RNA sequence: CAGUCUCGAAGGCGAUGGUUUGAGGAAACUCUCAUCACCUUCACCUCCCUGUUGGACUUGAGCCGGGCUUCGUGCCCGGCUUUUUUU
Numbered sequence: 001c002a003g004u005c006u007c008g009a010a011g012g013c014g015a016u017g018g019u020u021u022g023a024g025g026a027a028a029c030u031c032u033c034a035u036c037a038c039c040u041u042c043a044c045c046u047c048c049c050u051g052u053u054g055g056a057c058u059u060g061a062g063c064c065g066g067g068c069u070u071c072g073u074g075c076c077c078g079g080c081u082u083u084u085u086u087u
Stems, first nucleotide, its partner, number of pairs: 008042005014036005061081008
This 87-nucleotide RNA sequence from Paracoccus denitrificans belongs to the Rfam family "Singlet oxygen resistance RNA X". Rfam classes the family as a small RNA. A search with the family's covariance model found it, with a score of 53 bits. SorX (RSs2461)like SorY is a singlet oxygen induced sRNA that counteracts oxidative stress by targeting mRNA for a transporter in Rhodobacter. It also has an impact on resistance against organic hydroperoxides. It targets SD sequence of potA mRNA via an aSD sequence.